[Rfam]
Record summary: A member of the RNA family "Potassium channel RNA editing signal" from Paragonimus westermani, 113 nucleotides long. This family represents a group of sequences related to the human potassium channel Kv1.1 hairpin element which directs the efficient modification of an adenosine to inosine by an adenosine deaminase acting on RNA (ADAR). The ADAR modification causes an isoleucine/valine recoding event which lies in the ion-conducting pore of the potassium channel.

RNA sequence: CUAGAUACGGUGACAUUGUACCCACUACGAUUAUUGGGAAAAUAUUCGGAGGUGUAUGCUCACUGUCUGGAGUUUUGGUGAUAGCAUUGCCAGUUCCUGUCAUUGUGUCGCAU
Numbered sequence: 001c002u003a004g005a006u007a008c009g010g011u012g013a014c015a016u017u018g019u020a021c022c023c024a025c026u027a028c029g030a031u032u033a034u035u036g037g038g039a040a041a042a043u044a045u046u047c048g049g050a051g052g053u054g055u056a057u058g059c060u061c062a063c064u065g066u067c068u069g070g071a072g073u074u075u076u077g078g079u080g081a082u083a084g085c086a087u088u089g090c091c092a093g094u095u096c097c098u099g100u101c102a103u104u105g106u107g108u109c110g111c112a113u
Stems, first nucleotide, its partner, number of pairs: 002112001004109001006107005012101004018096001020094002036076004049061002

The base pairs follow the family's consensus structure, which is taken from published work.
The organism belongs to Paragonimus, within Eukaryota.
Gene Ontology term of the family: adenosine to inosine editing.